RNA sequence: ACUGCUUUUCUUUGAUGUCCCCAUAUUGAGGAGCCCGAUAGCCAAAUUUUUGUUUUAUUGCUAUCGGGUUUUUUGUU
Numbered sequence: 001a002c003u004g005c006u007u008u009u010c011u012u013u014g015a016u017g018u019c020c021c022c023a024u025a026u027u028g029a030g031g032a033g034c035c036c037g038a039u040a041g042c043c044a045a046a047u048u049u050u051u052g053u054u055u056u057a058u059u060g061c062u063a064u065c066g067g068g069u070u071u072u073u074u075g076u077u
Stems, first nucleotide, its partner, number of pairs: 032070011
Rfam assigns this 77-nucleotide RNA sequence from Providencia sneebia to the family "RybB RNA". The organism belongs to Providencia sneebia, within Bacteria. The family's consensus secondary structure was predicted with PFOLD. The match comes from Rfam's covariance-model search (77 bits). Rfam describes the family as follows. This ncRNA was identified in a large scale screen of E. coli. The function of this short RNA is unknown.